[Rfam]
RNA sequence: AUUUUUGAGAACCAUUUGAAUCAAGUAUUUUAGUCAUUCAAAUGGUUCUC
Numbered sequence: 001a002u003u004u005u006u007g008a009g010a011a012c013c014a015u016u017u018g019a020a021u022c023a024a025g026u027a028u029u030u031u032a033g034u035c036a037u038u039c040a041a042a043u044g045g046u047u048c049u050c
Stems, first nucleotide, its partner, number of pairs: 007050015023034001
Dot-bracket structure: ......(((((((((((((((.(..........).)))))))))))))))